This 85-nucleotide RNA from Sediminibacillus albus belongs to the Rfam family "c-di-GMP-I-GGC riboswitch aptamer".

RNA sequence: UUAGACAAAGGCAAACUAUUCGAAAGAGUAGGACGCAAAGCAUAGGGUCUAAGGGCUAUAUACUAUGAUCGCCUGGCUGCCAAUA
Number, nucleotide and partner (000 for none) at each position: 001u085002u000003a000004g081005a000006c000007a000008a000009a000010g000011g036012c035013a000014a000015a000016c031017u030018a029019u028020u027021c026022g000023a000024a000025a000026g021027a020028g019029u018030a017031g016032g000033a000034c071035g012036c011037a000038a000039a078040g077041c076042a000043u000044a074045g073046g072047g069048u068049c067050u000051a000052a000053g000054g000055g000056c000057u000058a000059u000060a000061u000062a000063c000064u000065a000066u000067g049068a048069u047070c000071g034072c046073c045074u044075g000076g041077c040078u039079g000080c000081c004082a000083a000084u000085a001
The literature on the family includes a 2017 paper in Proc Natl Acad Sci U S A by Weinberg et al., "Bioinformatic analysis of riboswitch structures uncovers variant classes with altered ligand specificity". Lineage of the source: Bacteria > Bacillota > Bacilli > Caryophanales > Sediminibacillus.